Archaeal large subunit ribosomal RNA: a 558-nucleotide part of an RNA from Methanothermus fervidus.

[Rfam]
RNA sequence: UUUAAGCCGCCCGGUGGAUGGCUCGGCUUGGGCGCCGACGAAGGCCGUGGCAAGCUGCGAUAAGCCCGGGUGAGGCGCAUGCAGCCGUAGAGCCCGGGAUCGCCGAAUGGGACCUCCUGGCCCUCCGUAAGGAGGGUCACUCCGUAAGGAGGGGGAACCCCCCGAACUGAAACAUCUUAGUAGGGGGAGGAAAAGAAAGCAAAAGCGAUGCCGUGAGUAGGGGCGACCGAAAGCGGCACAGGACAAACCGAACCCUCUGUAGCGAUACAGGGGGGAUGUGGUGUUGCAGGAUGGCAACAUAUGUUCCCUGCCUGGUGAAGCCGAAGUCCGGCUGGAAUGCCGGCGCCGGAGAGGGUGAAAGCCCCGUAGGCGUAAGCCAGGCAGGGAACGUUGCCAUCCUGAGUAGCGUCCCUUGGAUAUGGGGCGCGAAUCUGGGAGGCAUCGACUCCCAAUCCUAAAUACGUCCCAAGACCGAUAGCGCACUAGUACCGUGAGGGAAAGCUGAAAAGAACCCCUGACGGGGAGUGAAAAGAGCCUGAAACCGGGCGGCGACAAUCC
Numbered sequence: 001u002u003u004a005a006g007c008c009g010c011c012c013g014g015u016g017g018a019u020g021g022c023u024c025g026g027c028u029u030g031g032g033c034g035c036c037g038a039c040g041a042a043g044g045c046c047g048u049g050g051c052a053a054g055c056u057g058c059g060a061u062a063a064g065c066c067c068g069g070g071u072g073a074g075g076c077g078c079a080u081g082c083a084g085c086c087g088u089a090g091a092g093c094c095c096g097g098g099a100u101c102g103c104c105g106a107a108u109g110g111g112a113c114c115u116c117c118u119g120g121c122c123c124u125c126c127g128u129a130a131g132g133a134g135g136g137u138c139a140c141u142c143c144g145u146a147a148g149g150a151g152g153g154g155g156a157a158c159c160c161c162c163c164g165a166a167c168u169g170a171a172a173c174a175u176c177u178u179a180g181u182a183g184g185g186g187g188a189g190g191a192a193a194a195g196a197a198a199g200c201a202a203a204a205g206c207g208a209u210g211c212c213g214u215g216a217g218u219a220g221g222g223g224c225g226a227c228c229g230a231a232a233g234c235g236g237c238a239c240a241g242g243a244c245a246a247a248c249c250g251a252a253c254c255c256u257c258u259g260u261a262g263c264g265a266u267a268c269a270g271g272g273g274g275g276a277u278g279u280g281g282u283g284u285u286g287c288a289g290g291a292u293g294g295c296a297a298c299a300u301a302u303g304u305u306c307c308c309u310g311c312c313u314g315g316u317g318a319a320g321c322c323g324a325a326g327u328c329c330g331g332c333u334g335g336a337a338u339g340c341c342g343g344c345g346c347c348g349g350a351g352a353g354g355g356u357g358a359a360a361g362c363c364c365c366g367u368a369g370g371c372g373u374a375a376g377c378c379a380g381g382c383a384g385g386g387a388a389c390g391u392u393g394c395c396a397u398c399c400u401g402a403g404u405a406g407c408g409u410c411c412c413u414u415g416g417a418u419a420u421g422g423g424g425c426g427c428g429a430a431u432c433u434g435g436g437a438g439g440c441a442u443c444g445a446c447u448c449c450c451a452a453u454c455c456u457a458a459a460u461a462c463g464u465c466c467c468a469a470g471a472c473c474g475a476u477a478g479c480g481c482a483c484u485a486g487u488a489c490c491g492u493g494a495g496g497g498a499a500a501g502c503u504g505a506a507a508a509g510a511a512c513c514c515c516u517g518a519c520g521g522g523g524a525g526u527g528a529a530a531a532g533a534g535c536c537u538g539a540a541a542c543c544g545g546g547c548g549g550c551g552a553c554a555a556u557c558c
Stems, first nucleotide, its partner, number of pairs: 006550009020536001021502002025473002027470006033463002043104003046059003065098006074086003109118003140151004158189001159187005169176002199206002210237005220228002240456004248281003258269004294394004304387004320371003326344001329342004347351001353365003406427007434450005489496002